Rfam assigns this 305-nucleotide RNA from Papaver nudicaule to the family "Plant signal recognition particle RNA".
It scores 237 bits against the family's covariance model.
The family's RNA type in Rfam is non-coding RNA gene.
NCBI's taxonomy places the organism under Eukaryota, Mesangiospermae, Papaveraceae, Papaveroideae, Papaver.
The base pairs follow the family's consensus structure, which is taken from published work.
The family is grouped with related families in Rfam's "SRP clan".
RNA sequence: GUCGAGCUUGGUAGCGCGAGCUUGUGACCCAAGUGGGGACAUUAAAGUGGUUGAACACUUGUCCGAUUUCACUCGGUAGGUUCUUGGGUGCACACUAUGUUGACUCGCCCGUUCCAAGUUGGGAGUUGGUCUCAUGGUCCAUGCUUAAGCUCGGGCUGUGCGGCCACUGAAGAGGAGGGUACUGCGUCAGGCUGGUUUCACAGUGCAGCGAUCACCUCCCUCUCUUGACAGUGGAAGGAUAACGAGUCGAUGUGCCCCGGUUCCAUCUCUGCCUGGUGAGCUGAGCCAGUUGAACAACCACUUUU
Numbered sequence: 001g002u003c004g005a006g007c008u009u010g011g012u013a014g015c016g017c018g019a020g021c022u023u024g025u026g027a028c029c030c031a032a033g034u035g036g037g038g039a040c041a042u043u044a045a046a047g048u049g050g051u052u053g054a055a056c057a058c059u060u061g062u063c064c065g066a067u068u069u070c071a072c073u074c075g076g077u078a079g080g081u082u083c084u085u086g087g088g089u090g091c092a093c094a095c096u097a098u099g100u101u102g103a104c105u106c107g108c109c110c111g112u113u114c115c116a117a118g119u120u121g122g123g124a125g126u127u128g129g130u131c132u133c134a135u136g137g138u139c140c141a142u143g144c145u146u147a148a149g150c151u152c153g154g155g156c157u158g159u160g161c162g163g164c165c166a167c168u169g170a171a172g173a174g175g176a177g178g179g180u181a182c183u184g185c186g187u188c189a190g191g192c193u194g195g196u197u198u199c200a201c202a203g204u205g206c207a208g209c210g211a212u213c214a215c216c217u218c219c220c221u222c223u224c225u226u227g228a229c230a231g232u233g234g235a236a237g238g239a240u241a242a243c244g245a246g247u248c249g250a251u252g253u254g255c256c257c258c259g260g261u262u263c264c265a266u267c268u269c270u271g272c273c274u275g276g277u278g279a280g281c282u283g284a285g286c287c288a289g290u291u292g293a294a295c296a297a298c299c300a301c302u303u304u305u
Stems, first nucleotide, its partner, number of pairs: 001040003004023007028037003044304010056292002059289003062285001064283002067280001069279005075273004079264002083260002086257001088256001090255003100250008109238002112236005118229008127166005133160008143150002167172001174219005185210003192203003